[Rfam]
RNA: RtT RNA
Organism: Tatumella morbirosei
RNA sequence: ACAGAUUCUCCGUGGAGAAGGACGAGAACCUUCGACAAGGUUCGAGCCGAACAACGUGAAGCAACGUGCUUCAGCACGGCCCGCAGGGCGAGCCGUUUACGGCGAGUCAUCCUUCUCCCACCACCA
Numbered sequence: 001a002c003a004g005a006u007u008c009u010c011c012g013u014g015g016a017g018a019a020g021g022a023c024g025a026g027a028a029c030c031u032u033c034g035a036c037a038a039g040g041u042u043c044g045a046g047c048c049g050a051a052c053a054a055c056g057u058g059a060a061g062c063a064a065c066g067u068g069c070u071u072c073a074g075c076a077c078g079g080c081c082c083g084c085a086g087g088g089c090g091a092g093c094c095g096u097u098u099a100c101g102g103c104g105a106g107u108c109a110u111c112c113u114u115c116u117c118c119c120a121c122c123a124c125c126a
Base pairs, nucleotide, nucleotide: 015117016116017115018114019113020112021111033090034089036087041085043083044082048058049057065078066077067076068075069074
Dot-bracket structure: ..............(((((((...........((.(....(.((...((.......))......(((((....)))))...)).).).))....................))))))).........